[Rfam]
RNA sequence: AACGAUACUUCUGUCAAGUCCUAAGUAUCCUAUGGAUGGCAGCCUGGCAAGAUGAUCAGGAGAAUACACCUUUGCCUGGAAGCCGAUGGCAUGGGUUGAUUCU
Number, nucleotide and partner (000 for none) at each position: 001a000002a000003c000004g000005a000006u000007a000008c000009u000010u000011c042012u041013g040014u039015c038016a000017a000018g000019u000020c000021c000022u000023a000024a000025g000026u000027a000028u000029c000030c000031u000032a000033u000034g000035g000036a000037u000038g015039g014040c013041a012042g011043c060044c059045u058046g057047g056048c000049a000050a000051g000052a000053u000054g000055a000056u047057c046058a045059g044060g043061a103062g102063a101064a100065u000066a000067c000068a096069c095070c000071u000072u000073u091074g090075c089076c088077u000078g000079g000080a000081a000082g000083c000084c000085g000086a000087u000088g076089g075090c074091a073092u000093g000094g000095g069096u068097u000098g000099a000100u064101u063102c062103u061
Shown here is a 103-nucleotide sequence, a member of the family "dinG RNA".
The sequence is in the family's curated seed alignment.